The record is a 114-nucleotide sequence, which matches "SAM (S-adenosyl methionine) riboswitch aptamer" in Rfam.
The base pairs follow the family's consensus structure, which is taken from published work.
The literature on the family includes a 2008 paper in RNA by Weinberg et al., "The aptamer core of SAM-IV riboswitches mimics the ligand-binding site of SAM-I riboswitches".
Its Rfam clan is "SAM clan".
Rfam 15.1 lists 2,360 matches to the family in 1,305 species.
Rfam describes the family as follows. SAM-IV is a mRNA element that regulates gene expression via direct sensing of S-adenosylmethionine (SAM or AdoMet). SAM-IV riboswitches share conserved nucleotide positions with the previously described SAM-I riboswitches sequence analysis and molecular recognition experiments suggest that SAM-I and SAM-IV riboswitches share similar ligand binding sites, but have different scaffolds.
[Rfam]
Nucleotides: 114
Stems, first nucleotide, its partner, number of pairs: 001075004009038001011037006021030002039062003044058003078103005084097004
Number, partner (000 for none) and nucleotide at each position: 001075c002074u003073u004072c005000a006000c007000g008000a009038g010000a011037c012036a013035c014034g015033g016032c017000g018000u019000u020000a021030a022029g023000c024000u025000c026000c027000g028000a029022c030021u031000a032016g033015c034014c035013g036012u037011g038009c039062a040061c041060c042000a043000a044058c045057c046056c047000c048000a049000g050000a051000u052000u053000c054000a055000u056046g057045g058044g059000u060041g061040g062039u063000u064000c065000g066000g067000a068000u069000g070000a071000c072004g073003a074002a075001g076000c077000g078103g079102u080101c081100c082099g083000a084097g085096c086095g087094u088000a089000a090000u091000a092000u093000u094087g095086c096085g097084u098000c099082c100081g101080g102079g103078c104000a105000a106000g107000a108000a109000c110000u111000u112000c113000a114000g